Alphaproteobacteria transfer-messenger RNA: a 372-nucleotide sequence from Breoghania corrubedonensis. A search with the family's covariance model found it, with a score of 296 bits. From the family's description: Bacterial tmRNA, also known as 10Sa RNA or SsrA, is named for its dual tRNA and mRNA-like properties. Its role is to liberate the mRNA from a stalled ribosome. The source organism's lineage runs through Bacteria, Pseudomonadati, Alphaproteobacteria, Stappiaceae and Breoghania. The family's RNA type in Rfam is non-coding RNA gene. The base pairs follow the family's consensus structure, which is taken from published work.
[Rfam]
RNA sequence: ACUCUUUUCAUUCCGCUCGCCCCUCCCUAUAUUCGGUUUGCCGGGGCAACCCGGCUAUGGCGAUAAACGGUCAGUGCAAUAAGCCUUUCGGACCCGGGGGCGGUACCCGGCGCCUCCACCCGAGCCCAUCGACGCAGCAAGGCGAUAUCGGUGGGUUCCGGCGGGGGCGAAAUAGGAUCGACGAGGGUGUAAAGACUGCGCUUUCGCUCGGCAUGGUUCCGCCGUUAUCGGGCCUUAUCAAUAGUUGCAAACGACAACUAUGCUAUGGACAACGCUGUCGCCGCGUAAUGCGGUGCCGGUAGUCCUUUAAAGCCCUCCCGGGUAGCACCAGGAGGCGGGGUUCGGAGGCACCUGGCAACAGAAGCCUCCACU
Number, nucleotide and partner (000 for none) at each position: 001a000002c000003u000004c000005u000006u000007u000008u000009c000010a000011u000012u000013c000014c000015g000016c000017u000018c000019g000020c000021c000022c000023c000024u000025c000026c000027c000028u000029a000030u000031a000032u000033u000034c000035g000036g000037u000038u000039u000040g055041c054042c053043g052044g051045g000046g000047c000048a000049a000050c000051c044052c043053g042054g041055c040056u000057a000058u000059g208060g207061c206062g205063a204064u000065a000066a000067a000068c000069g201070g000071u000072c198073a197074g196075u195076g000077c000078a000079a000080u000081a000082a000083g000084c187085c186086u185087u000088u184089c183090g182091g000092a000093c000094c110095c109096g108097g107098g106099g000100g000101c000102g000103g000104u000105a000106c098107c097108c096109g095110g094111c169112g168113c167114c166115u165116c164117c163118a000119c000120c000121c000122g000123a000124g000125c000126c000127c000128a000129u000130c000131g000132a000133c000134g000135c000136a000137g000138c000139a000140a000141g000142g000143c000144g000145a000146u000147a000148u000149c000150g000151g000152u000153g000154g000155g000156u000157u000158c000159c000160g000161g000162c000163g117164g116165g115166g114167g113168c112169g111170a000171a000172a000173u000174a000175g000176g000177a000178u000179c000180g000181a000182c090183g089184a088185g086186g085187g084188u000189g000190u000191a000192a000193a000194g000195a075196c074197u073198g072199c000200g000201c069202u000203u000204u063205c062206g061207c060208u059209c224210g223211g222212c221213a000214u000215g234216g233217u000218u232219c231220c230221g212222c211223c210224g209225u000226u000227a000228u000229c000230g220231g219232g218233c216234c215235u000236u000237a000238u000239c000240a000241a000242u000243a000244g000245u000246u000247g000248c000249a000250a000251a000252c000253g000254a000255c000256a000257a000258c000259u000260a000261u000262g000263c000264u000265a000266u000267g000268g000269a000270c000271a000272a000273c000274g000275c000276u000277g000278u000279c000280g000281c000282c000283g000284c000285g000286u000287a000288a000289u000290g000291c000292g000293g000294u000295g000296c000297c000298g000299g000300u000301a000302g000303u000304c000305c000306u000307u000308u000309a000310a000311a000312g000313c000314c000315c000316u000317c000318c000319c000320g000321g000322g000323u000324a000325g000326c000327a000328c000329c000330a000331g000332g000333a000334g000335g000336c000337g000338g353339g352340g351341u350342u000343c000344g369345g368346a367347g366348g365349c364350a341351c340352c339353u338354g000355g000356c000357a000358a000359c000360a000361g000362a000363a000364g349365c348366c347367u346368c345369c344370a000371c000372u000